[Rfam]
RNA sequence: GCGUUCGGGUAAUCGCUGCAGUGAACGAUAGUGAUACUGCAGAGGAAAGUCCAUGCUCGCACGGGCUGCGAUGCCCGUAGUGUUCGUGCCUAGCCAAUUCAUAAGCUGGGGCAGCUUGAACAAGAUUUAAGCUGACGGCCGGAAAAACGCCUAAGUCCGCAUGGAUAUGGCGUGAAUACCUGUAAAAGUGCCACAGUGACGUAGCCUUUUUAGAAAUAAAAAGGGUGGAACGAGGUAAACCCCGCGAGCGAGAAACCCAAAUAAUGGUAGGGGCACUUUCUCUUAGGAAUUGAACGAGGAGAAGGACAGAUUGGCAUGCCAAUUUGUAGAUAGAUGAUUACCGCCCUCGUACGAGACAACCGUCGUUUGCAGUACAGGGGUACAGAACAUGGCUUACAGAA
Numbered sequence: 001g002c003g004u005u006c007g008g009g010u011a012a013u014c015g016c017u018g019c020a021g022u023g024a025a026c027g028a029u030a031g032u033g034a035u036a037c038u039g040c041a042g043a044g045g046a047a048a049g050u051c052c053a054u055g056c057u058c059g060c061a062c063g064g065g066c067u068g069c070g071a072u073g074c075c076c077g078u079a080g081u082g083u084u085c086g087u088g089c090c091u092a093g094c095c096a097a098u099u100c101a102u103a104a105g106c107u108g109g110g111g112c113a114g115c116u117u118g119a120a121c122a123a124g125a126u127u128u129a130a131g132c133u134g135a136c137g138g139c140c141g142g143a144a145a146a147a148c149g150c151c152u153a154a155g156u157c158c159g160c161a162u163g164g165a166u167a168u169g170g171c172g173u174g175a176a177u178a179c180c181u182g183u184a185a186a187a188g189u190g191c192c193a194c195a196g197u198g199a200c201g202u203a204g205c206c207u208u209u210u211u212a213g214a215a216a217u218a219a220a221a222a223g224g225g226u227g228g229a230a231c232g233a234g235g236u237a238a239a240c241c242c243c244g245c246g247a248g249c250g251a252g253a254a255a256c257c258c259a260a261a262u263a264a265u266g267g268u269a270g271g272g273g274c275a276c277u278u279u280c281u282c283u284u285a286g287g288a289a290u291u292g293a294a295c296g297a298g299g300a301g302a303a304g305g306a307c308a309g310a311u312u313g314g315c316a317u318g319c320c321a322a323u324u325u326g327u328a329g330a331u332a333g334a335u336g337a338u339u340a341c342c343g344c345c346c347u348c349g350u351a352c353g354a355g356a357c358a359a360c361c362g363u364c365g366u367u368u369g370c371a372g373u374a375c376a377g378g379g380g381u382a383c384a385g386a387a388c389a390u391g392g393c394u395u396a397c398a399g400a401a
Stems, first nucleotide, its partner, number of pairs: 004401003007397001008342007016042008047395003051392005056252005061078006084247005089110006111136001112134009137242002140182003148172004155166003188240002190236003205224008256272003276305007306327009344380004349375004